[Rfam]
RNA sequence: GUUUCUCGGCAGGUUGGGAUCAGCUGCAAUGUUGUUUUGGGUGUAAUAUUGCACUUGUCCCGGCCUGUUGAGUGCAC
Numbered sequence: 001g002u003u004u005c006u007c008g009g010c011a012g013g014u015u016g017g018g019a020u021c022a023g024c025u026g027c028a029a030u031g032u033u034g035u036u037u038u039g040g041g042u043g044u045a046a047u048a049u050u051g052c053a054c055u056u057g058u059c060c061c062g063g064c065c066u067g068u069u070g071a072g073u074g075c076a077c
Stems, first nucleotide, its partner, number of pairs: 005072002009068006016061005022055002026052009
The family of this 77-nucleotide sequence from Bagarius yarrelli is "mir-92 microRNA precursor family". This family represents the microRNA precursor mir-92. Human miR-92 has two predicted hairpin precursor sequences: mir-92-1 on chromosome 13 and mir-92-2 on chromosome X. miR-92 has also been cloned from mouse embryonic stem cells. The family's consensus secondary structure was predicted with PFOLD. Clan: mir-92 microRNA precursor clan.